[Rfam]
Shown here is a 68-nucleotide sequence from Loxodonta africana, a member of the family "Small nucleolar RNA SNORD123". It is annotated as a C/D-box small nucleolar RNA. Taxonomically the source falls in Loxodonta (Eukaryota, Bilateria, Afrotheria, Elephantidae).
RNA sequence: GGUGAAAAUGAUGAGUCUGGGGCUCUGAUCCAUGUGACUUGAAAAGGCCAUCCAUUUCCUGACUCACC
Numbered sequence: 001g002g003u004g005a006a007a008a009u010g011a012u013g014a015g016u017c018u019g020g021g022g023c024u025c026u027g028a029u030c031c032a033u034g035u036g037a038c039u040u041g042a043a044a045a046g047g048c049c050a051u052c053c054a055u056u057u058c059c060u061g062a063c064u065c066a067c068c
Stems, first nucleotide, its partner, number of pairs: 001068005